A. fumigatus sRNA Afu_309: a 273-nucleotide RNA sequence from Xylaria grammica. Pairs were carried over by alignment from the consensus structure, which was predicted with WAR. The organism belongs to Xylaria, within Eukaryota. For this family Rfam cites "Small ncRNA transcriptome analysis from Aspergillus fumigatus suggests a novel mechanism for regulation of protein synthesis" (Jochl et al., Nucleic Acids Res, 2008).
RNA sequence: UCUUCUUCUUCAAUCACCGACCUGUGCCCGACCGUCCUCUGUUCGCAUCGCGAAUUCAGAGUUGAUGGUCGCGGCAGCUCGAUUUCUUAUGGGAUCAUCCUUUUUUACCAUGAUGUCAGUCCAAAUCACAGGUCGCAGAGGAACCAAUUCAGUGAACCUGAGCUCGCCGUAAGGCUGAGCUCGGUUCUCUGGAUUUGAAGACCGUAUAUUCCAAAACCACAGCCGAGAUCUUUGAUUUAUGAGGUGGGGGAAAACCAUACGAUGUCUACAUAU
Numbered sequence: 001u002c003u004u005c006u007u008c009u010u011c012a013a014u015c016a017c018c019g020a021c022c023u024g025u026g027c028c029c030g031a032c033c034g035u036c037c038u039c040u041g042u043u044c045g046c047a048u049c050g051c052g053a054a055u056u057c058a059g060a061g062u063u064g065a066u067g068g069u070c071g072c073g074g075c076a077g078c079u080c081g082a083u084u085u086c087u088u089a090u091g092g093g094a095u096c097a098u099c100c101u102u103u104u105u106u107a108c109c110a111u112g113a114u115g116u117c118a119g120u121c122c123a124a125a126u127c128a129c130a131g132g133u134c135g136c137a138g139a140g141g142a143a144c145c146a147a148u149u150c151a152g153u154g155a156a157c158c159u160g161a162g163c164u165c166g167c168c169g170u171a172a173g174g175c176u177g178a179g180c181u182c183g184g185u186u187c188u189c190u191g192g193a194u195u196u197g198a199a200g201a202c203c204g205u206a207u208a209u210u211c212c213a214a215a216a217c218c219a220c221a222g223c224c225g226a227g228a229u230c231u232u233u234g235a236u237u238u239a240u241g242a243g244g245u246g247g248g249g250g251a252a253a254a255c256c257a258u259a260c261g262a263u264g265u266c267u268a269c270a271u272a273u
Stems, first nucleotide, its partner, number of pairs: 018135008026075003029071003033067004037061005043054001044052003085125001087123001090118003094114003146195003155186004160182006166175002200266003203261005217249002220246001222245003227237004